[Rfam]
RNA sequence: CUAUGCUAAAGGGGGAGCUAGCGGUGCCCUGUAACCUGCAAUCCGCUACAGCAGGCUUGAAUUCCUUGUUUAGACAUUAAGUUGUUAGAUCCAUGUAGUUAAAAAAGUGAUGAGAGCUGGGUCCCAUGCAUCAGGAAAUCAUAAACCCCGUCAGAUUCGGAAGAAAGCAGCGGUAAGUGAACCUUCCUGAGUGCCCUGGAUCAAUCUAGCUUGAGCCAAUUUAACUACAAAGGCUAGUAGCUUAACUGACAAGACAAGGUGCAUAG
Numbered sequence: 001c002u003a004u005g006c007u008a009a010a011g012g013g014g015g016a017g018c019u020a021g022c023g024g025u026g027c028c029c030u031g032u033a034a035c036c037u038g039c040a041a042u043c044c045g046c047u048a049c050a051g052c053a054g055g056c057u058u059g060a061a062u063u064c065c066u067u068g069u070u071u072a073g074a075c076a077u078u079a080a081g082u083u084g085u086u087a088g089a090u091c092c093a094u095g096u097a098g099u100u101a102a103a104a105a106a107g108u109g110a111u112g113a114g115a116g117c118u119g120g121g122u123c124c125c126a127u128g129c130a131u132c133a134g135g136a137a138a139u140c141a142u143a144a145a146c147c148c149c150g151u152c153a154g155a156u157u158c159g160g161a162a163g164a165a166a167g168c169a170g171c172g173g174u175a176a177g178u179g180a181a182c183c184u185u186c187c188u189g190a191g192u193g194c195c196c197u198g199g200a201u202c203a204a205u206c207u208a209g210c211u212u213g214a215g216c217c218a219a220u221u222u223a224a225c226u227a228c229a230a231a232g233g234c235u236a237g238u239a240g241c242u243u244a245a246c247u248g249a250c251a252a253g254a255c256a257a258g259g260u261g262c263a264u265a266g
Stems, first nucleotide, its partner, number of pairs: 001266006009058003012030004017025003035055005064259007073250001075248002079243010092232001095228006103221002107216002114212009124199003128195001129191001132189005139180004148173004156165003
RNA: Bacterial large signal recognition particle RNA
Organism: Clostridium sp. N3C